[Rfam]
RNA sequence: AUGGGAAACUCCCCCUCCUAUAACCCCCCCGCUGGCAUCUCCCCCUCAGACUGGC
Number, nucleotide and partner (000 for none) at each position: 001a021002u020003g019004g018005g017006a016007a000008a000009c000010u000011c000012c000013c000014c000015c000016u006017c005018c004019u003020a002021u001022a000023a000024c000025c000026c000027c000028c000029c000030c000031g055032c054033u053034g052035g051036c000037a000038u000039c000040u000041c000042c000043c000044c000045c000046u000047c000048a000049g000050a000051c035052u034053g033054g032055c031
This 55-nucleotide RNA sequence from Deltaretrovirus bovleu belongs to the Rfam family "Bovine leukaemia virus RNA packaging signal". The base pairs follow the family's consensus structure, which is taken from published work. NCBI's taxonomy places the organism under Viruses, Riboviria, Revtraviricetes, Orthoretrovirinae, Deltaretrovirus bovleu. Rfam links the family to the GO term viral RNA genome packaging. For this family Rfam cites "The primary nucleotide sequence of the bovine leukemia virus RNA packaging signal can influence efficient RNA packaging and virus replication" (Mansky and Gajary, Virology, 2002). This family represents the bovine leukaemia virus RNA encapsidation (packaging) signal which is essential for efficient viral replication.